[Rfam]
RNA: TPP riboswitch aptamer (THI element)
Organism: Nocardioides humilatus
RNA sequence: CUCAUCAAGCACGGGAGUCCGCGGCAGCGGGCUGAGAGGGAGCUGGAGCCGCUCCGACCGUCGAACCUGAUCCGGGUCAUGCCGGCGCAGGAAGCGAAGGAGCAGCCCCA
Numbered sequence: 001c002u003c004a005u006c007a008a009g010c011a012c013g014g015g016a017g018u019c020c021g022c023g024g025c026a027g028c029g030g031g032c033u034g035a036g037a038g039g040g041a042g043c044u045g046g047a048g049c050c051g052c053u054c055c056g057a058c059c060g061u062c063g064a065a066c067c068u069g070a071u072c073c074g075g076g077u078c079a080u081g082c083c084g085g086c087g088c089a090g091g092a093a094g095c096g097a098a099g100g101a102g103c104a105g106c107c108c109c110a
Base pairs, nucleotide, nucleotide: 009095010094011061012060013059014058017032018031019030020029021028039055040054041053042052043051066091067090068089069088072085073084074083075082